The record is a 76-nucleotide RNA from Myotis davidii, which matches "mir-9193 microRNA precursor family" in Rfam.
Pairs were carried over by alignment from the consensus structure, which was predicted with RNAalifold.
The organism belongs to Myotis, within Eukaryota.
Its family is annotated with miRNA-mediated post-transcriptional gene silencing and RISC complex in the Gene Ontology.
RNA sequence: CAUGGCGGGGAGGGGGGUUCCUUAGUCUGGAUUGUGAGAGGGUGCAGGCCAGGCCGAGGGACUCCACUGGUGCACA
Numbered sequence: 001c002a003u004g005g006c007g008g009g010g011a012g013g014g015g016g017g018u019u020c021c022u023u024a025g026u027c028u029g030g031a032u033u034g035u036g037a038g039a040g041g042g043u044g045c046a047g048g049c050c051a052g053g054c055c056g057a058g059g060g061a062c063u064c065c066a067c068u069g070g071u072g073c074a075c076a
Base pairs, nucleotide, nucleotide: 003074004073008071011068012067014065015064016063017062018061019060020059021058022057023056025054026053027052029050030049032047033046034045035044036043